[Rfam]
RNA sequence: CUCCCCGAAAUGCAUUUAGGUGCAGCGUUGCGUGUUUCUUGCCGGAGGUAGAGCACUGGAUGGCCUAGGGGGCCCACAAGCUUACUGAAGUCAGCCAAACUCCGAAUGCCGGUAAGUGAAGCGUGGCAGUGAGACUGCGGGGGAUAAGCUUCGUAGUCGAGAGGGAAACAGCCCAGAUCGCCAGCUAAGGCCCCUAAGCGUGCGCUAAGUGGAAAAGGAUGUGGAGUCGCAUAGACAACCAGGAGGUUGGCUUAGAAGCAGCCACCCUUGAAAGAGUGCGUAAUAGCUCACUGGUCAAGUGAUUCCGCGCCGACAAUGUAGCGGGGCUCAAGCGCACCGCCGAAGCUGCGGCAUACACGUUGUGUAUGGGUAGGGGAGCGUCGUGUGGCGAGUGAAGCGGCGGGGUGACCCAGUCGUGGACGCUACACGAGUGAGAAU
Numbered sequence: 001c002u003c004c005c006c007g008a009a010a011u012g013c014a015u016u017u018a019g020g021u022g023c024a025g026c027g028u029u030g031c032g033u034g035u036u037u038c039u040u041g042c043c044g045g046a047g048g049u050a051g052a053g054c055a056c057u058g059g060a061u062g063g064c065c066u067a068g069g070g071g072g073c074c075c076a077c078a079a080g081c082u083u084a085c086u087g088a089a090g091u092c093a094g095c096c097a098a099a100c101u102c103c104g105a106a107u108g109c110c111g112g113u114a115a116g117u118g119a120a121g122c123g124u125g126g127c128a129g130u131g132a133g134a135c136u137g138c139g140g141g142g143g144a145u146a147a148g149c150u151u152c153g154u155a156g157u158c159g160a161g162a163g164g165g166a167a168a169c170a171g172c173c174c175a176g177a178u179c180g181c182c183a184g185c186u187a188a189g190g191c192c193c194c195u196a197a198g199c200g201u202g203c204g205c206u207a208a209g210u211g212g213a214a215a216a217g218g219a220u221g222u223g224g225a226g227u228c229g230c231a232u233a234g235a236c237a238a239c240c241a242g243g244a245g246g247u248u249g250g251c252u253u254a255g256a257a258g259c260a261g262c263c264a265c266c267c268u269u270g271a272a273a274g275a276g277u278g279c280g281u282a283a284u285a286g287c288u289c290a291c292u293g294g295u296c297a298a299g300u301g302a303u304u305c306c307g308c309g310c311c312g313a314c315a316a317u318g319u320a321g322c323g324g325g326g327c328u329c330a331a332g333c334g335c336a337c338c339g340c341c342g343a344a345g346c347u348g349c350g351g352c353a354u355a356c357a358c359g360u361u362g363u364g365u366a367u368g369g370g371u372a373g374g375g376g377a378g379c380g381u382c383g384u385g386u387g388g389c390g391a392g393u394g395a396a397g398c399g400g401c402g403g404g405g406u407g408a409c410c411c412a413g414u415c416g417u418g419g420a421c422g423c424u425a426c427a428c429g430a431g432u433g434a435g436a437a438u
Base pairs, nucleotide, nucleotide: 001378002377003376004375005374006373011024012023013022014021015020026129027127028126029125030124031123032122033121036120038116039115040114041113042112043111044110045109051103052101053100057097058096059095061093062092063091064090068086069085070083071082072081073080133158134157135156136155137154138153139152140151141150142149163174164173165172178351179350180349181348183347184346185345189341190340191339198338200337201336202335203334204333205332217311218310221308222307223306224305225304226303227302228301229300230299238295239294240293241292242291244268245267246266249263250262251261269273274289278287279286352368353367354366355365356364357363358362379433381430382429383428384427385426386425387424388423389422390421397417398416399415400414401413402411403410404409

A member of the RNA family "Bacterial large subunit ribosomal RNA" from Frankia sp. R43, 438 nucleotides of a longer RNA. Rfam links the family to the GO terms structural constituent of ribosome and ribosome. NCBI's taxonomy places the organism under Bacteria, Actinomycetes, Frankiales, Frankiaceae, Frankia.